Rfam assigns this 76-nucleotide RNA sequence to the family "dfrA-dnaX RNA". Rfam classes the family as a small RNA.
RNA sequence: AUGCCUUAUGGUAAAGCUAUAAUUAUUUCAUCGUAAUUACUUAAAUUUAAUUAUCAAAAUGGGAUUAUGAUUUAAU
Numbered sequence: 001a002u003g004c005c006u007u008a009u010g011g012u013a014a015a016g017c018u019a020u021a022a023u024u025a026u027u028u029c030a031u032c033g034u035a036a037u038u039a040c041u042u043a044a045a046u047u048u049a050a051u052u053a054u055c056a057a058a059a060u061g062g063g064a065u066u067a068u069g070a071u072u073u074a075a076u
Stems, first nucleotide, its partner, number of pairs: 030071008